[Rfam]
RNA sequence: CAUUCCACUGCUGCACCGAAGGCACACAUCUUUGGUGGGACUUGGAAUUCUGGAGAACUCCCUUUGUGAAAAACUGGGUGUAAUUCCUUUAAAUUCCAUCUGUCAGUUUUCCACUUUGUUAUGUUUUGGGGAGCAUCAAGAAACC
Numbered sequence: 001c002a003u004u005c006c007a008c009u010g011c012u013g014c015a016c017c018g019a020a021g022g023c024a025c026a027c028a029u030c031u032u033u034g035g036u037g038g039g040a041c042u043u044g045g046a047a048u049u050c051u052g053g054a055g056a057a058c059u060c061c062c063u064u065u066g067u068g069a070a071a072a073a074c075u076g077g078g079u080g081u082a083a084u085u086c087c088u089u090u091a092a093a094u095u096c097c098a099u100c101u102g103u104c105a106g107u108u109u110u111c112c113a114c115u116u117u118g119u120u121a122u123g124u125u126u127u128g129g130g131g132a133g134c135a136u137c138a139a140g141a142a143a144c145c
Stems, first nucleotide, its partner, number of pairs: 005078002010074001012072001016068001017066006024059001037051004084143002087140003094133004
Rfam assigns this 145-nucleotide sequence from Vulpes vulpes to the family "ODC internal ribosome entry site (IRES)". The literature on the family includes a 2005 paper in Cell Mol Life Sci by Pyronnet et al., "Alternative splicing facilitates internal ribosome entry on the ornithine decarboxylase mRNA". The family's consensus secondary structure was predicted with mfold. The match comes from Rfam's covariance-model search (105 bits). Its family is annotated with ribosome binding in the Gene Ontology. Rfam 15.1 lists 437 matches to the family in 128 species.